[Rfam]
RNA sequence: CGCGGGGUGGAGCAGUCAGGUAGCUUGUCAGGCUCAUAACCUGAAGGUCGUAGGUUCGAAUCCUGCCCCCGCAA
Dot-bracket structure: .((((((..((((.........)))).(((((.......))))).....(((((.......)))))))))))..
Shown here is a 74-nucleotide sequence from Lentisphaera araneosa, a member of the family "tRNA". Rfam 15.1 lists 5,335,975 matches to the family in 14,413 species. The organism belongs to Lentisphaera araneosa, within Bacteria. Its family is annotated with triplet codon-amino acid adaptor activity in the Gene Ontology.